The record is a 60-nucleotide RNA from Hordeum vulgare, which matches "Rubella virus 3' cis-acting element" in Rfam. For this family Rfam cites "Mutagenic analysis of the 3' cis-acting elements of the rubella virus genome" (Chen and Frey, J Virol, 1999). It is annotated as a cis-regulatory element. This family represents a cis-acting element found at the 3' UTR in the rubella virus. This family contains three conserved step loop structures. Its family is annotated with viral genome replication in the Gene Ontology. NCBI's taxonomy places the organism under Eukaryota, Streptophytina, Tracheophyta, Euphyllophyta, Hordeum vulgare. A search with the family's covariance model found it, with a score of 35 bits.
RNA sequence: UACUAGUAGCGCGGUAACCCGCGCUACUAGUAGGCACUAAACCUGCGCUACUACUAGGCU
Number, nucleotide and partner (000 for none) at each position: 001u032002a031003c030004u029005a000006g027007u026008a025009g024010c023011g022012c021013g020014g019015u000016a000017a000018c000019c014020c013021g012022c011023g010024c009025u008026a007027c006028u000029a004030g003031u002032a001033g052034g046035c045036a044037c000038u000039a000040a000041a000042c000043c000044u036045g035046c034047g000048c000049u000050a000051c000052u033053a000054c000055u000056a000057g000058g000059c000060u000